[Rfam]
RNA sequence: GGUUGGAUAAGGCGGUUACGCCGCAUCCAACAUCUAACGCCCGAGCCGGUUGCCUGAUGCGACGCUGGCGCGUCUUAUCAGCA
Numbered sequence: 001g002g003u004u005g006g007a008u009a010a011g012g013c014g015g016u017u018a019c020g021c022c023g024c025a026u027c028c029a030a031c032a033u034c035u036a037a038c039g040c041c042c043g044a045g046c047c048g049g050u051u052g053c054c055u056g057a058u059g060c061g062a063c064g065c066u067g068g069c070g071c072g073u074c075u076u077a078u079c080a081g082c083a
Stems, first nucleotide, its partner, number of pairs: 002031007011022004052082002055080005061074005
RNA: Nucleoid-associated noncoding RNA 4 (CssrE)